[Rfam]
RNA: Eukaryotic large subunit ribosomal RNA, nucleotides 1391 to 1817
RNA sequence: GGUAGUAGCAAAUAUUCAAGUGAGAACCUUGAAGGGCGAAGCGGGGAAGGGUUCCAUGCGAACAUUGAUUGGGCAUGGGUGAGUCGUCCCUAAGCCGAGUGGCCAUUGCUUACUCAGGCGGCGAAAGGGAAGCGGGUUGAAAUUCCCGCACACGGAUGUGGAACAAGGCGGUGACGCAAAUUACUGGGGCGGUGACGUUGGCAGUGGCGCUGGGCAGAGUUUUCUUUUCUGUUUAACCGCCUGACGCUUGCUCUGUGGAAUCCGAUUGUCGGGAGAAACAGGCAAGGCACGGGUAGAGCGCCGGGCUUUUUCCGGCGUCCAGCUCGCCGCUGACGACCCUUGAAAAACUGUCCUCAGGUAUUAAAAAUCCACGCCGUGGCGUACCGAUAACCGCAUCAGGUCCCCAAGGUGAACAGCCUCUGCUCGA
Numbered sequence: 001g002g003u004a005g006u007a008g009c010a011a012a013u014a015u016u017c018a019a020g021u022g023a024g025a026a027c028c029u030u031g032a033a034g035g036g037c038g039a040a041g042c043g044g045g046g047a048a049g050g051g052u053u054c055c056a057u058g059c060g061a062a063c064a065u066u067g068a069u070u071g072g073g074c075a076u077g078g079g080u081g082a083g084u085c086g087u088c089c090c091u092a093a094g095c096c097g098a099g100u101g102g103c104c105a106u107u108g109c110u111u112a113c114u115c116a117g118g119c120g121g122c123g124a125a126a127g128g129g130a131a132g133c134g135g136g137u138u139g140a141a142a143u144u145c146c147c148g149c150a151c152a153c154g155g156a157u158g159u160g161g162a163a164c165a166a167g168g169c170g171g172u173g174a175c176g177c178a179a180a181u182u183a184c185u186g187g188g189g190c191g192g193u194g195a196c197g198u199u200g201g202c203a204g205u206g207g208c209g210c211u212g213g214g215c216a217g218a219g220u221u222u223u224c225u226u227u228u229c230u231g232u233u234u235a236a237c238c239g240c241c242u243g244a245c246g247c248u249u250g251c252u253c254u255g256u257g258g259a260a261u262c263c264g265a266u267u268g269u270c271g272g273g274a275g276a277a278a279c280a281g282g283c284a285a286g287g288c289a290c291g292g293g294u295a296g297a298g299c300g301c302c303g304g305g306c307u308u309u310u311u312c313c314g315g316c317g318u319c320c321a322g323c324u325c326g327c328c329g330c331u332g333a334c335g336a337c338c339c340u341u342g343a344a345a346a347a348c349u350g351u352c353c354u355c356a357g358g359u360a361u362u363a364a365a366a367a368u369c370c371a372c373g374c375c376g377u378g379g380c381g382u383a384c385c386g387a388u389a390a391c392c393g394c395a396u397c398a399g400g401u402c403c404c405c406a407a408g409g410u411g412a413a414c415a416g417c418c419u420c421u422g423c424u425c426g427a
Base pairs, nucleotide, nucleotide: 015033016032017031018030019029020028034425035424036423037422043405044404045403046402049385050384054078055077056076057075058074059073063071064070085381086380087379089128090127094122095121096108097107098106100105132149133148134147135146136145152377153376154375155374157373158372159371160370161369168177169176170175188352189351190350191349192348193347197337198336199335200334202332203331204330205329206328207327208326210322211321212320213233214232215231216230217229218228237292238291239290252282253281254280255279256278261273262272263271264270299317300316301315302314303313304312305311391400392399407419408418409417410416